[Rfam]
RNA sequence: CCCGCAGUGGACGGAAAGACCCUGUGCACCUUUACUAUAGCUUAGUAUUGACCUUGGAUAAAUGAUGUGUUGGAUAGGUUGGACUUCUAUGAAGCGGCGUCGCCAGGCGUUUGGAGUCAUUGUUGAAAUACAACCCUUUGUUUAUCUGAGCUAACCGCGAGUAUCGGGACAGUUGCUUGGUGGGUAGUUUGACUGGGGUGGGUCGCCUCCCAAAAGAGAUAACGGAGGCUUCUAAAGGUCCCUCAGUACGCUAGGUAACAGUGCGGUAGAGCUGCAAUGGCAUAAGGGAGCUUUGACGUGAGAGACAGUACAGGUCGGAUCAGGUUACGAAAGUAGAGCUUAGUGAUCCGGUGGUUCCGCAUGGAAGGGCCAUCGCUCAAAGGAUAAAAGGUACUCCGGGGAUAACAGGCUGAUCUCCCCCAAGAGCUCAUAUCGACGGGGAGGUUUGGCACCUCGAUGUCGGCUCGUCGCAUCCUGGGGCUGGAGAAGGUCCCAAGGGUUGGGCUGUUCGCCCAUUAAAGCGGCACGUGAGCUGGGUUCAGAACGUCGCAAGACAGUUCGGUCCCUAUCUGUUGUGGGCGCAAGAAGAUGC
Numbered sequence: 001c002c003c004g005c006a007g008u009g010g011a012c013g014g015a016a017a018g019a020c021c022c023u024g025u026g027c028a029c030c031u032u033u034a035c036u037a038u039a040g041c042u043u044a045g046u047a048u049u050g051a052c053c054u055u056g057g058a059u060a061a062a063u064g065a066u067g068u069g070u071u072g073g074a075u076a077g078g079u080u081g082g083a084c085u086u087c088u089a090u091g092a093a094g095c096g097g098c099g100u101c102g103c104c105a106g107g108c109g110u111u112u113g114g115a116g117u118c119a120u121u122g123u124u125g126a127a128a129u130a131c132a133a134c135c136c137u138u139u140g141u142u143u144a145u146c147u148g149a150g151c152u153a154a155c156c157g158c159g160a161g162u163a164u165c166g167g168g169a170c171a172g173u174u175g176c177u178u179g180g181u182g183g184g185u186a187g188u189u190u191g192a193c194u195g196g197g198g199u200g201g202g203u204c205g206c207c208u209c210c211c212a213a214a215a216g217a218g219a220u221a222a223c224g225g226a227g228g229c230u231u232c233u234a235a236a237g238g239u240c241c242c243u244c245a246g247u248a249c250g251c252u253a254g255g256u257a258a259c260a261g262u263g264c265g266g267u268a269g270a271g272c273u274g275c276a277a278u279g280g281c282a283u284a285a286g287g288g289a290g291c292u293u294u295g296a297c298g299u300g301a302g303a304g305a306c307a308g309u310a311c312a313g314g315u316c317g318g319a320u321c322a323g324g325u326u327a328c329g330a331a332a333g334u335a336g337a338g339c340u341u342a343g344u345g346a347u348c349c350g351g352u353g354g355u356u357c358c359g360c361a362u363g364g365a366a367g368g369g370c371c372a373u374c375g376c377u378c379a380a381a382g383g384a385u386a387a388a389a390g391g392u393a394c395u396c397c398g399g400g401g402a403u404a405a406c407a408g409g410c411u412g413a414u415c416u417c418c419c420c421c422a423a424g425a426g427c428u429c430a431u432a433u434c435g436a437c438g439g440g441g442a443g444g445u446u447u448g449g450c451a452c453c454u455c456g457a458u459g460u461c462g463g464c465u466c467g468u469c470g471c472a473u474c475c476u477g478g479g480g481c482u483g484g485a486g487a488a489g490g491u492c493c494c495a496a497g498g499g500u501u502g503g504g505c506u507g508u509u510c511g512c513c514c515a516u517u518a519a520a521g522c523g524g525c526a527c528g529u530g531a532g533c534u535g536g537g538u539u540c541a542g543a544a545c546g547u548c549g550c551a552a553g554a555c556a557g558u559u560c561g562g563u564c565c566c567u568a569u570c571u572g573u574u575g576u577g578g579g580c581g582c583a584a585g586a587a588g589a590u591g592c
Base pairs, nucleotide, nucleotide: 001579002578003577004576005575006574007573008572009571010570011569013566014565021400022399023398024397026396028392029391030390031389032388034188035187036186037185041180042179044177045176046175047174050151053150054149055148056147057146058145059144060143061142062141063140064139065138067136077135078134079133080132081131087116094112096111097110098109099108100107101106155167156166157165159164191204192203193202194201205229206228207227208226209225210224230381232338233337238291239290240288241287242286243270244269246264247263248262249261271281272280297324299322300321301320304316305315306314326335327334328333349375350374351373352372353371354370355369357368358367409450410449411448413447414444415443416442417441418440419439420438424434425433461536462534463533464532465531466528467525468524469523470522471521474499475498477494478493479492480491481490482489501515502514503513504512505511542560543559544558545557546555547554548553
Rfam assigns this 592-nucleotide part of an RNA to the family "Bacterial large subunit ribosomal RNA". The family's consensus secondary structure is taken from published work. It scores 1388 bits against the family's covariance model.